[Rfam]
RNA sequence: AGGGAGAAACCGAAAAUCCUAAAAAGAGUAGGGA
Numbered sequence: 001a002g003g004g005a006g007a008a009a010c011c012g013a014a015a016a017u018c019c020u021a022a023a024a025a026g027a028g029u030a031g032g033g034a
Base pairs, nucleotide, nucleotide: 002020003019004018005017010032011031
RNA: DUF805b RNA